[Rfam]
RNA: Small nucleolar RNA F1/F2/snoR5a
RNA sequence: ACUUGCCAUUUGGUAUCUGACACACAAUGGUUUCUCUGGUUAUGUGUCUCGAAACAUGGCAAAAAACAAGUUGUAACGGUUUUGCGACACUGGUUGCUCUGUUCAAUGAGCCUCUAGUUACUAUAACCCCGUUUACAUCC
Numbered sequence: 001a002c003u004u005g006c007c008a009u010u011u012g013g014u015a016u017c018u019g020a021c022a023c024a025c026a027a028u029g030g031u032u033u034c035u036c037u038g039g040u041u042a043u044g045u046g047u048c049u050c051g052a053a054a055c056a057u058g059g060c061a062a063a064a065a066a067c068a069a070g071u072u073g074u075a076a077c078g079g080u081u082u083u084g085c086g087a088c089a090c091u092g093g094u095u096g097c098u099c100u101g102u103u104c105a106a107u108g109a110g111c112c113u114c115u116a117g118u119u120a121c122u123a124u125a126a127c128c129c130c131g132u133u134u135a136c137a138u139c140c
Stems, first nucleotide, its partner, number of pairs: 004061006019048006026041003030037001075133005089118005096111003